Rfam assigns this 84-nucleotide RNA sequence from Vigna angularis to the family "Small nucleolar RNA R11/Z151". Rfam 15.1 lists 802 matches to the family in 218 species. The base pairs follow the family's consensus structure, which was predicted with PFOLD.
RNA sequence: UGGCUUAUGAUGAUAAUUUAAUUAUCUUAGCGGAUUUCAGUGAGAUUUUUAUCAAUGAUCUGAUUGUUACACACACUGAAGCCA
Numbered sequence: 001u002g003g004c005u006u007a008u009g010a011u012g013a014u015a016a017u018u019u020a021a022u023u024a025u026c027u028u029a030g031c032g033g034a035u036u037u038c039a040g041u042g043a044g045a046u047u048u049u050u051a052u053c054a055a056u057g058a059u060c061u062g063a064u065u066g067u068u069a070c071a072c073a074c075a076c077u078g079a080a081g082c083c084a
Base pairs, nucleotide, nucleotide: 001084002083003082004081005080

It is annotated as a C/D-box small nucleolar RNA. Gene Ontology terms of the family: RNA processing and nucleolus.